[Rfam]
RNA sequence: UUCCAAUCGGGCGAGCCACUCCACUUUCUGGUUCGUCACGAAGAAAAAGGAGGAAAAAACAUACCGUGGCCUGCGGUGCGGCAGUGUGGAGACCUGUCGUAUAUGCAUCCGGCACGUAUGCGGCCGGCUGUGAGGUUACAGCUUGCGGAGGCACUGUAACUAAGGUAAGAAAGAUGGCG
Numbered sequence: 001u002u003c004c005a006a007u008c009g010g011g012c013g014a015g016c017c018a019c020u021c022c023a024c025u026u027u028c029u030g031g032u033u034c035g036u037c038a039c040g041a042a043g044a045a046a047a048a049g050g051a052g053g054a055a056a057a058a059a060c061a062u063a064c065c066g067u068g069g070c071c072u073g074c075g076g077u078g079c080g081g082c083a084g085u086g087u088g089g090a091g092a093c094c095u096g097u098c099g100u101a102u103a104u105g106c107a108u109c110c111g112g113c114a115c116g117u118a119u120g121c122g123g124c125c126g127g128c129u130g131u132g133a134g135g136u137u138a139c140a141g142c143u144u145g146c147g148g149a150g151g152c153a154c155u156g157u158a159a160c161u162a163a164g165g166u167a168a169g170a171a172a173g174a175u176g177g178c179g
Stems, first nucleotide, its partner, number of pairs: 010037009064076004069166004077101008086093002105131003109127005134161008144153003